[Rfam]
A member of the RNA family "Bacillaceae-1 RNA" from Metabacillus arenae, 63 nucleotides long.
RNA sequence: GAAUAAGGAACACAGACUCAAAGCGCCGCAUCCUGGCAAGUCUGUGUGACCACAUUCUGUGGG
Numbered sequence: 001g002a003a004u005a006a007g008g009a010a011c012a013c014a015g016a017c018u019c020a021a022a023g024c025g026c027c028g029c030a031u032c033c034u035g036g037c038a039a040g041u042c043u044g045u046g047u048g049a050c051c052a053c054a055u056u057c058u059g060u061g062g063g
Stems, first nucleotide, its partner, number of pairs: 011046007025037002029035001050062004
The match comes from Rfam's covariance-model search (41 bits). The base pairs follow the family's consensus structure, which is taken from published work. The family's RNA type in Rfam is small RNA.